[Rfam]
This 133-nucleotide sequence from Medicago truncatula belongs to the Rfam family "MIR2619 microRNA precursor family".

RNA sequence: AAACAGCCCCCUAUGUUUUGAUUCUUUGGCAGUUUUGGACCCCCAAGGCAAAAAAAAAAAAAAAAAUGGACUGGGGUCAACAAUGGACUGGGGGUCCAAAACUGCCAAAGAAUCAAAACAUAGGGGGCUGUUU
Numbered sequence: 001a002a003a004c005a006g007c008c009c010c011c012u013a014u015g016u017u018u019u020g021a022u023u024c025u026u027u028g029g030c031a032g033u034u035u036u037g038g039a040c041c042c043c044c045a046a047g048g049c050a051a052a053a054a055a056a057a058a059a060a061a062a063a064a065a066a067u068g069g070a071c072u073g074g075g076g077u078c079a080a081c082a083a084u085g086g087a088c089u090g091g092g093g094g095u096c097c098a099a100a101a102c103u104g105c106c107a108a109a110g111a112a113u114c115a116a117a118a119c120a121u122a123g124g125g126g127g128c129u130g131u132u133u
Stems, first nucleotide, its partner, number of pairs: 001133002004130005012122034
Dot-bracket structure: ((.(((((...((((((((((((((((((((((((((((((((((...........................................))))))))))))))))))))))))))))))))))...))))).))
The match comes from Rfam's covariance-model search (137 bits). Lineage of the source: Eukaryota > Spermatophyta > Fabaceae > Trifolieae > Medicago. Pairs were carried over by alignment from the consensus structure, which was predicted with RNAalifold.